[Rfam]
RNA sequence: UUUUUAUACCGAGGCGUGGAGAGAAAGGCUCGACGAAACGCCGGCAACCCCCAACACAAUUGGAACGGUGCCAACCGAGGUCAGCGCAAGUAUCGACUGACUAUAUAAAAA
Numbered sequence: 001u002u003u004u005u006a007u008a009c010c011g012a013g014g015c016g017u018g019g020a021g022a023g024a025a026a027g028g029c030u031c032g033a034c035g036a037a038a039c040g041c042c043g044g045c046a047a048c049c050c051c052c053a054a055c056a057c058a059a060u061u062g063g064a065a066c067g068g069u070g071c072c073a074a075c076c077g078a079g080g081u082c083a084g085c086g087c088a089a090g091u092a093u094c095g096a097c098u099g100a101c102u103a104u105a106u107a108a109a110a111a
Base pairs, nucleotide, nucleotide: 001111002110003109004108005107006106007105008104013042014041015040016039017038021031022030023029043072044071045070046069048068049067051063052062053061081100082099083098084097
This 111-nucleotide sequence from Hymenobacter qilianensis belongs to the Rfam family "SAM riboswitch aptamer (S box leader)".